[Rfam]
RNA sequence: GUCAGGAACCUCUGCCUCAAGGCGGGGGCUUGCUUCAGCAAGCCUGAACCUGACCAGUCUCAGCCAGGGCAGACUUGAUGGAUAGAAUCAUCAAGGCAAUCGGGCUACGUUAAAUAGGUACGUUGGAGUGCAUGCCGGCCCCAACCGCUACGGUGCAACAUUAAACAGGCGUAGAGGGUGAAGCCAGUGUGUUGUACACCAAACCGUUUUUAACAUUGACGAGGCAACCAUUAC
Numbered sequence: 001g002u003c004a005g006g007a008a009c010c011u012c013u014g015c016c017u018c019a020a021g022g023c024g025g026g027g028g029c030u031u032g033c034u035u036c037a038g039c040a041a042g043c044c045u046g047a048a049c050c051u052g053a054c055c056a057g058u059c060u061c062a063g064c065c066a067g068g069g070c071a072g073a074c075u076u077g078a079u080g081g082a083u084a085g086a087a088u089c090a091u092c093a094a095g096g097c098a099a100u101c102g103g104g105c106u107a108c109g110u111u112a113a114a115u116a117g118g119u120a121c122g123u124u125g126g127a128g129u130g131c132a133u134g135c136c137g138g139c140c141c142c143a144a145c146c147g148c149u150a151c152g153g154u155g156c157a158a159c160a161u162u163a164a165a166c167a168g169g170c171g172u173a174g175a176g177g178g179u180g181a182a183g184c185c186a187g188u189g190u191g192u193u194g195u196a197c198a199c200c201a202a203a204c205c206g207u208u209u210u211u212a213a214c215a216u217u218g219a220c221g222a223g224g225c226a227a228c229c230a231u232u233a234c
Stems, first nucleotide, its partner, number of pairs: 001054006010028002012025002015022002029042004057220003062106004109214006116207001118151002122145005128139002133227001134225003153197009165188002168185003172181001174179001
Dot-bracket structure: ((((((...((((.((....)).)).))((((......))))......))))))..(((..((((.....................................))))..((((((.(.((..(((((.((...[[[[.)).)))))....)).(((((((((...((.(((.(.(....).).))).))))))))))).........).))))))...)))..]]].].......

This 234-nucleotide RNA from Ktedonobacter racemifer belongs to the Rfam family "HNH endonuclease-associated RNA and ORF (HEARO) RNA". The organism belongs to Ktedonobacter racemifer, within Bacteria. A reference for the family is Weinberg et al. (2009), "Exceptional structured noncoding RNAs revealed by bacterial metagenome analysis", Nature.